[Rfam]
Nucleotides: 101
Base pairs, nucleotide, nucleotide: 001101002100003099004098005097006096007095
Number, partner (000 for none) and nucleotide at each position: 001101u002100u003099u004098g005097u006096g007095a008000a009000a010000u011000g012000a013000u014000g015000c016000u017000a018000a019000a020000g021000a022000u023000a024000u025000c026000g027000a028000a029000u030000c031000a032000u033000g034000u035000g036000u037000c038000a039000u040000a041000g042000g043000c044000g045000c046000a047000a048000a049000c050000u051000g052000a053000u054000u055000g056000u057000g058000c059000u060000c061000u062000g063000c064000u065000g066000a067000a068000c069000g070000g071000a072000u073000u074000a075000c076000u077000a078000u079000u080000u081000g082000c083000a084000c085000g086000u087000c088000a089000g090000u091000c092000u093000g094000a095007u096006c097005a098004c099003a100002a101001a